[Rfam]
RNA sequence: GAAGUUCGCCAGACCGCCGCUGGUGCGAUCGCCGAAAGGCGGCACUGGAGGAAGGUCCGGACUGCGCAGGGCAGCGUAGCAGGCAACGCCUGUCCACCGCGAGGUGAGGAUCAGAGCAACAGAGACGAGUCUCGGCGGCUGGGGCAACUCGGUCGUCGGGGGUGAAACGGGCAAUCUCUACGCGCAGCAAUACCAAAUAGGCCAGCGGUGAUGUGGCUCCGCGGAGCUGGCGGGUAGGUAGCACCGAGCCGGUGGGGCGACCCCCGGCCCAGAGGAAUGGCGGUCACGGCGCGGGCAACCGCGCCGCACAGAAUCCGGCCUACGGCGGACUUCACAC
Numbered sequence: 001g002a003a004g005u006u007c008g009c010c011a012g013a014c015c016g017c018c019g020c021u022g023g024u025g026c027g028a029u030c031g032c033c034g035a036a037a038g039g040c041g042g043c044a045c046u047g048g049a050g051g052a053a054g055g056u057c058c059g060g061a062c063u064g065c066g067c068a069g070g071g072c073a074g075c076g077u078a079g080c081a082g083g084c085a086a087c088g089c090c091u092g093u094c095c096a097c098c099g100c101g102a103g104g105u106g107a108g109g110a111u112c113a114g115a116g117c118a119a120c121a122g123a124g125a126c127g128a129g130u131c132u133c134g135g136c137g138g139c140u141g142g143g144g145c146a147a148c149u150c151g152g153u154c155g156u157c158g159g160g161g162g163u164g165a166a167a168c169g170g171g172c173a174a175u176c177u178c179u180a181c182g183c184g185c186a187g188c189a190a191u192a193c194c195a196a197a198u199a200g201g202c203c204a205g206c207g208g209u210g211a212u213g214u215g216g217c218u219c220c221g222c223g224g225a226g227c228u229g230g231c232g233g234g235u236a237g238g239u240a241g242c243a244c245c246g247a248g249c250c251g252g253u254g255g256g257g258c259g260a261c262c263c264c265c266g267g268c269c270c271a272g273a274g275g276a277a278u279g280g281c282g283g284u285c286a287c288g289g290c291g292c293g294g295g296c297a298a299c300c301g302c303g304c305c306g307c308a309c310a311g312a313a314u315c316c317g318g319c320c321u322a323c324g325g326c327g328g329a330c331u332u333c334a335c336a337c
Stems, first nucleotide, its partner, number of pairs: 001333010012285007020048007053321003057318005062187004069219004074183005079093005094108001095106004109178002114176002116172002131161002133158011191240004201231006212223004248268005254263003

The family of this 337-nucleotide sequence from Ramlibacter pinisoli is "Bacterial RNase P class A". Rfam classes the family as a ribozyme.